A member of the RNA family "Small nucleolar RNA Z112" from Triticum urartu, 166 nucleotides long. On this family, see Liang et al., Nucleic Acids Res 2002: "A novel gene organization: intronic snoRNA gene clusters from Oryza sativa". It is annotated as a C/D-box small nucleolar RNA. Clan: SNORD49 clan. The family's consensus secondary structure was predicted with PFOLD. The family has 6 seed sequences and 427 matches in Rfam 15.1. It scores 48 bits against the family's covariance model.
[Rfam]
Nucleotides: 166
Base pairs, nucleotide, nucleotide: 001166002165003164004163005162060124061123062122063121064120065119066118067117068110069109070108071107072106073105074104079100080099082097084096085095087093
Number, partner (000 for none) and nucleotide at each position: 001166u002165u003164g004163c005162a006000c007000g008000g009000g010000u011000g012000a013000g014000c015000u016000c017000c018000u019000a020000u021000g022000g023000u024000u025000c026000c027000u028000a029000u030000g031000a032000c033000a034000a035000u036000g037000u038000a039000c040000a041000u042000c043000u044000a045000c046000u047000g048000c049000u050000u051000c052000u053000c054000u055000g056000c057000u058000a059000c060124u061123g062122c063121a064120a065119g066118u067117g068110u069109c070108c071107a072106u073105c074104c075000u076000u077000g078000u079100a080099u081000g082097g083000u084096a085095a086000g087093c088000u089000u090000u091000g092000u093087g094000g095085u096084u097082u098000g099080g100079u101000c102000u103000g104074g105073g106072a107071u108070g109069g110068a111000a112000a113000u114000a115000c116000a117067c118066a119065u120064u121063u122062g123061c124060a125000c126000c127000g128000g129000c130000u131000u132000g133000a134000u135000u136000c137000a138000g139000c140000u141000u142000u143000g144000u145000g146000u147000u148000g149000u150000c151000u152000g153000g154000a155000u156000c157000a158000c159000c160000a161000u162005u163004g164003u165002a166001g